This 525-nucleotide RNA from Eutypa lata belongs to the Rfam family "RNase MRP". NCBI's taxonomy places the organism under Eukaryota, Fungi, Dikarya, Sordariomycetes, Eutypa lata. Rfam classes the family as a ribozyme.
RNA sequence: CCCUCGCCCAAAAAAUCGCAAUCGAAGCUACAAACAGAGACACUUCCAUUUUCGAUGGAUUUGUCUCGAAAUACCUACAAAAUCUGCUUUGGGAGAAAGUCCCCGGACAUCCUGUACAUUGCAAAAUGAUCAGGAACGCGGAAACGCGCCGCCAUAAAAGCACCGCGGCUUAAGCUCGUUUUAUCGUCUUGUCUUUAUCCAAUCUUCAUCUGCCCCGGGCGUACUGUUUUAAAAUCUUUUCCAAACCUACUUUCCUUACCAGCUCAGAGUUCAUGCUCCGUCCCGAGACCCCAAUGGACGAAGAUAUGAGUCCGCGCUCGUGGUUCGGGGUUUCUGGUGCUUGUGUGGGUGUGAGUUGGGUACGGAAUCGAUGGUUCGUCGGACGCAUUGGUGGGGUGGUGGGACGUCAUGGAUGGUACUGGAGUCAACCUUUUCGUCGAUAUCAAUAGUUAUGCGAUUGCCCUGGUUCUUUCUCUUUUGGGGAGAAGCCGGGGUAACUCGAUGGGGCUUAUUCUUGGUGCGAGG
Numbered sequence: 001c002c003c004u005c006g007c008c009c010a011a012a013a014a015a016u017c018g019c020a021a022u023c024g025a026a027g028c029u030a031c032a033a034a035c036a037g038a039g040a041c042a043c044u045u046c047c048a049u050u051u052u053c054g055a056u057g058g059a060u061u062u063g064u065c066u067c068g069a070a071a072u073a074c075c076u077a078c079a080a081a082a083u084c085u086g087c088u089u090u091g092g093g094a095g096a097a098a099g100u101c102c103c104c105g106g107a108c109a110u111c112c113u114g115u116a117c118a119u120u121g122c123a124a125a126a127u128g129a130u131c132a133g134g135a136a137c138g139c140g141g142a143a144a145c146g147c148g149c150c151g152c153c154a155u156a157a158a159a160g161c162a163c164c165g166c167g168g169c170u171u172a173a174g175c176u177c178g179u180u181u182u183a184u185c186g187u188c189u190u191g192u193c194u195u196u197a198u199c200c201a202a203u204c205u206u207c208a209u210c211u212g213c214c215c216c217g218g219g220c221g222u223a224c225u226g227u228u229u230u231a232a233a234a235u236c237u238u239u240u241c242c243a244a245a246c247c248u249a250c251u252u253u254c255c256u257u258a259c260c261a262g263c264u265c266a267g268a269g270u271u272c273a274u275g276c277u278c279c280g281u282c283c284c285g286a287g288a289c290c291c292c293a294a295u296g297g298a299c300g301a302a303g304a305u306a307u308g309a310g311u312c313c314g315c316g317c318u319c320g321u322g323g324u325u326c327g328g329g330g331u332u333u334c335u336g337g338u339g340c341u342u343g344u345g346u347g348g349g350u351g352u353g354a355g356u357u358g359g360g361u362a363c364g365g366a367a368u369c370g371a372u373g374g375u376u377c378g379u380c381g382g383a384c385g386c387a388u389u390g391g392u393g394g395g396g397u398g399g400u401g402g403g404a405c406g407u408c409a410u411g412g413a414u415g416g417u418a419c420u421g422g423a424g425u426c427a428a429c430c431u432u433u434u435c436g437u438c439g440a441u442a443u444c445a446a447u448a449g450u451u452a453u454g455c456g457a458u459u460g461c462c463c464u465g466g467u468u469c470u471u472u473c474u475c476u477u478u479u480g481g482g483g484a485g486a487a488g489c490c491g492g493g494g495u496a497a498c499u500c501g502a503u504g505g506g507g508c509u510u511a512u513u514c515u516u517g518g519u520g521c522g523a524g525g
Base pairs, nucleotide, nucleotide: 002525003524004523005522006521007520008518009517010516011515014459015458016457017456018455019454022093023091024090025089026088027087028086037067038066039065040064041063042062097510098509099508101507102506103505104504137148138147139146140145273410274409275408279406280405281404282403283402284401289395290394291393292390293389294388295387374384375383376382377381461494462493463492464491465490466489467488468487